TPP riboswitch aptamer (THI element): a 95-nucleotide sequence from Rhodobaculum claviforme.

RNA sequence: CCGGUGCGACAGGGGCGCCCGCCAUGGUGGGCUGAGACGGACCCUUUGAACCUGAACCGGAUCAUGCCGGCGGAGGAAGUCGCGGAACACGGACG
Numbered sequence: 001c002c003g004g005u006g007c008g009a010c011a012g013g014g015g016c017g018c019c020c021g022c023c024a025u026g027g028u029g030g031g032c033u034g035a036g037a038c039g040g041a042c043c044c045u046u047u048g049a050a051c052c053u054g055a056a057c058c059g060g061a062u063c064a065u066g067c068c069g070g071c072g073g074a075g076g077a078a079g080u081c082g083c084g085g086a087a088c089a090c091g092g093a094c095g
Stems, first nucleotide, its partner, number of pairs: 006083005011045004016039001017032005051076003057070004
Rfam links the family to the GO term thiamine pyrophosphate binding. About the family: Vitamin B(1) in its active form thiamin pyrophosphate (TPP) is an essential coenzyme that is synthesised by coupling of pyrimidine and thiazole moieties in bacteria.